[Rfam]
RNA: manA RNA
RNA sequence: UGUUGGGUUGAUCACCUAACACGGAAGUGACUGAAGAACCCUGUUGGAAUUAGGCGGGGUAAAGUAUUGAGUUAGAGGUGGUGCUCGCUGACAUUGUGCAGAACCCUUUACCAAGGGAACUCAAGUUGUAAUGAACCUUACAUCGCACACUAGCGAUUCCCGUUACUUGAGGGUAAAAUGAAUUCCCUCCUUCCACACC
Numbered sequence: 001u002g003u004u005g006g007g008u009u010g011a012u013c014a015c016c017u018a019a020c021a022c023g024g025a026a027g028u029g030a031c032u033g034a035a036g037a038a039c040c041c042u043g044u045u046g047g048a049a050u051u052a053g054g055c056g057g058g059g060u061a062a063a064g065u066a067u068u069g070a071g072u073u074a075g076a077g078g079u080g081g082u083g084c085u086c087g088c089u090g091a092c093a094u095u096g097u098g099c100a101g102a103a104c105c106c107u108u109u110a111c112c113a114a115g116g117g118a119a120c121u122c123a124a125g126u127u128g129u130a131a132u133g134a135a136c137c138u139u140a141c142a143u144c145g146c147a148c149a150c151u152a153g154c155g156a157u158u159c160c161c162g163u164u165a166c167u168u169g170a171g172g173g174u175a176a177a178a179u180g181a182a183u184u185c186c187c188u189c190c191u192u193c194c195a196c197a198c199c
Stems, first nucleotide, its partner, number of pairs: 001021008023194005030065002039059006068123006075086003079113004088101003091097002104117004128166006143156004148180002151177001169189005